RNA: mir-29 microRNA precursor family
RNA sequence: GGAUGACUGAUUUCUUUUGGUGUUCAGAGUCAAUAGAAUUUUCUAGCACCAUCUGAAAUCGGUUAUAA
Numbered sequence: 001g002g003a004u005g006a007c008u009g010a011u012u013u014c015u016u017u018u019g020g021u022g023u024u025c026a027g028a029g030u031c032a033a034u035a036g037a038a039u040u041u042u043c044u045a046g047c048a049c050c051a052u053c054u055g056a057a058a059u060c061g062g063u064u065a066u067a068a
Stems, first nucleotide, its partner, number of pairs: 003066002005063001007062008018051005026044003